[Rfam]
This 137-nucleotide sequence from Halanaerobium salsuginis belongs to the Rfam family "Group II catalytic intron D1-D4-7". Taxonomically the source falls in Halanaerobium (Bacteria, Bacillota, Clostridia, Halanaerobiaceae). The pairing is the family consensus, mapped onto this sequence. Rfam links the family to the GO term Group II intron splicing.
RNA sequence: UAUCCUAUCCAUUCGGGGUAACUCUAUCGUGACUAGCGCGGAUGGCAACGUCUGGGUUAGAAAGCUCACGAGACAAUGUAGAAGUUCGGAUAGCCUAGAAUUGGAACAACUGCUAGAGUAAGAAUGCUAUGGAGAAC
Numbered sequence: 001u002a003u004c005c006u007a008u009c010c011a012u013u014c015g016g017g018g019u020a021a022c023u024c025u026a027u028c029g030u031g032a033c034u035a036g037c038g039c040g041g042a043u044g045g046c047a048a049c050g051u052c053u054g055g056g057u058u059a060g061a062a063a064g065c066u067c068a069c070g071a072g073a074c075a076a077u078g079u080a081g082a083a084g085u086u087c088g089g090a091u092a093g094c095c096u097a098g099a100a101u102u103g104g105a106a107c108a109a110c111u112g113c114u115a116g117a118g119u120a121a122g123a124a125u126g127c128u129a130u131g132g133a134g135a136a137c
Stems, first nucleotide, its partner, number of pairs: 002019005028070005033060005039054006083102005103128002106125001110118002